6S / SsrS RNA: a 185-nucleotide sequence.
It is one of the family's seed sequences.
Rfam describes the family as follows. E. coli 6S RNA was the first non coding RNA to be sequenced, but its function was unknown until recently.
A reference for the family is Wassarman and Storz (2000), "6S RNA regulates E. coli RNA polymerase activity", Cell.
[Rfam]
RNA sequence: GAGAUUAUGUACUCCACUCCGAUUACCUAGUUUUGACCGAACAUUUUUUUAUACGGGAGCUUGCCCUUUCCUUUCUGCAUAAAUGCCCUCAUUAGAGGCACUUAUAAAGUCAGGAAGAAAGCACCCACCUGCCAUGGUGCGGGGUUCAAAACGAAGGAAAGGAGGGGAAGAAAUAAGAAAGAUAU
Numbered sequence: 001g002a003g004a005u006u007a008u009g010u011a012c013u014c015c016a017c018u019c020c021g022a023u024u025a026c027c028u029a030g031u032u033u034u035g036a037c038c039g040a041a042c043a044u045u046u047u048u049u050u051a052u053a054c055g056g057g058a059g060c061u062u063g064c065c066c067u068u069u070c071c072u073u074u075c076u077g078c079a080u081a082a083a084u085g086c087c088c089u090c091a092u093u094a095g096a097g098g099c100a101c102u103u104a105u106a107a108a109g110u111c112a113g114g115a116a117g118a119a120a121g122c123a124c125c126c127a128c129c130u131g132c133c134a135u136g137g138u139g140c141g142g143g144g145u146u147c148a149a150a151a152c153g154a155a156g157g158a159a160a161g162g163a164g165g166g167g168a169a170g171a172a173a174u175a176a177g178a179a180a181g182a183u184a185u
Stems, first nucleotide, its partner, number of pairs: 002183001005180002008177001010175002012170002015167001017166003030152007037144002055126003059122004064117001069115004075109001081103002087098004